[Rfam]
RNA sequence: UCGAACGAUAGAGGCGCGGACGCGAGGAGCCUCGGGCGAGCCGGCAGGCCGGCAGCGACCCCGAGGGGAGGCAGAUCCGCCGAAUUCGCCGGCAUCCUCAGCCUGGGGGACGGCGGAUGGGCCUGCGGGAGAUACCCGCUGGACUGUCUGCCUGCAAAAUUGACGAAAGUGAUUGAUUUUCGUGAAUUUGUGAGCAGUUGCGCUAUCUUGACC
Numbered sequence: 001u002c003g004a005a006c007g008a009u010a011g012a013g014g015c016g017c018g019g020a021c022g023c024g025a026g027g028a029g030c031c032u033c034g035g036g037c038g039a040g041c042c043g044g045c046a047g048g049c050c051g052g053c054a055g056c057g058a059c060c061c062c063g064a065g066g067g068g069a070g071g072c073a074g075a076u077c078c079g080c081c082g083a084a085u086u087c088g089c090c091g092g093c094a095u096c097c098u099c100a101g102c103c104u105g106g107g108g109g110a111c112g113g114c115g116g117a118u119g120g121g122c123c124u125g126c127g128g129g130a131g132a133u134a135c136c137c138g139c140u141g142g143a144c145u146g147u148c149u150g151c152c153u154g155c156a157a158a159a160u161u162g163a164c165g166a167a168a169g170u171g172a173u174u175g176a177u178u179u180u181c182g183u184g185a186a187u188u189u190g191u192g193a194g195c196a197g198u199u200g201c202g203c204u205a206u207c208u209u210g211a212c213c
Stems, first nucleotide, its partner, number of pairs: 007207005016080005024072001030066007084118008093109001095107003119145002122142002125139005148197004153192006
Rfam assigns this 213-nucleotide RNA sequence from Sutterella wadsworthensis to the family "Lysine riboswitch aptamer". Gene Ontology term of the family: lysine biosynthetic process.